The family of this 300-nucleotide sequence from Betacoronavirus tylonycteridis is "Betacoronavirus 5'UTR". The family is grouped with related families in Rfam's "Coronavirus 5' UTR".

RNA sequence: GAUUUAAGUGAAUAGCCUAGCUAUCUCACCCCCUCUCGUUCUCUUGCAGAACUUUGAUUUUAACGAACUUAAAUAAUAGCCUUGCUGUGUGCGUGUUGUGUUGUGGUCUGCAGCGUUUAGGCGCCGGGCUUCAAGCUUCAUGCUCAACACUGGGCAUAAUUAAAUAUACUAAAUAAUAAUAUUUUUCAUUCUGAGCUAUCGUGUCUCUUGUACUUCUCGGUCACAAUACCCUGUUCCGUCAGGUGCGUGGCAAUCCGGGGCAUACUAUGCUUUCCAAGGCUAGUGUGACCACGCAAGGUG
Numbered sequence: 001g002a003u004u005u006a007a008g009u010g011a012a013u014a015g016c017c018u019a020g021c022u023a024u025c026u027c028a029c030c031c032c033c034u035c036u037c038g039u040u041c042u043c044u045u046g047c048a049g050a051a052c053u054u055u056g057a058u059u060u061u062a063a064c065g066a067a068c069u070u071a072a073a074u075a076a077u078a079g080c081c082u083u084g085c086u087g088u089g090u091g092c093g094u095g096u097u098g099u100g101u102u103g104u105g106g107u108c109u110g111c112a113g114c115g116u117u118u119a120g121g122c123g124c125c126g127g128g129c130u131u132c133a134a135g136c137u138u139c140a141u142g143c144u145c146a147a148c149a150c151u152g153g154g155c156a157u158a159a160u161u162a163a164a165u166a167u168a169c170u171a172a173a174u175a176a177u178a179a180u181a182u183u184u185u186u187c188a189u190u191c192u193g194a195g196c197u198a199u200c201g202u203g204u205c206u207c208u209u210g211u212a213c214u215u216c217u218c219g220g221u222c223a224c225a226a227u228a229c230c231c232u233g234u235u236c237c238g239u240c241a242g243g244u245g246c247g248u249g250g251c252a253a254u255c256c257g258g259g260g261c262a263u264a265c266u267a268u269g270c271u272u273u274c275c276a277a278g279g280c281u282a283g284u285g286u287g288a289c290c291a292c293g294c295a296a297g298g299u300g
Stems, first nucleotide, its partner, number of pairs: 008029003012024005038052005091143004098136002103132001105130006201213002226244002231242003261287007269280003

It is annotated as a cis-regulatory element. Rfam's curators write: The first 150 to 200 nucleotides within the 5' UTR of betacoronaviruses are highly structured and shown to be conserved on a structure level among betacoronaviruses. It has been predicted to contain 3 conserved stem-loops (SL1, SL2 and SL4). SARS-CoV and BCoV have an additional stem-loop, called SL3, which contains the TRS-L sequence in its loop region. However, according to predictions, SL3 is not stable in other betacoronaviruses like MHV. SL1 is important for viral replication, most likely playing a role in the template-switch of viral subgenomic RNA transcription. Rfam's curators put it in the seed alignment.